[Rfam]
RNA: Potassium channel RNA editing signal
Organism: Hyalella azteca
RNA sequence: GUUGGGUACGGCGAUAUUUAUCCAGUGACACCGCUAGGCAAAGUGAUAGGUUCAGUGUGCUGUAUUUGUGGUGUGCUGGUCAUUGCGCUGCCUAUUCCUAUCAUCGUCAACAAC
Numbered sequence: 001g002u003u004g005g006g007u008a009c010g011g012c013g014a015u016a017u018u019u020a021u022c023c024a025g026u027g028a029c030a031c032c033g034c035u036a037g038g039c040a041a042a043g044u045g046a047u048a049g050g051u052u053c054a055g056u057g058u059g060c061u062g063u064a065u066u067u068g069u070g071g072u073g074u075g076c077u078g079g080u081c082a083u084u085g086c087g088c089u090g091c092c093u094a095u096u097c098c099u100a101u102c103a104u105c106g107u108c109a110a111c112a113a114c
Base pairs, nucleotide, nucleotide: 001114002113004111008107009106010105011104013102014101015100016099020095021094037077038076039075040074049063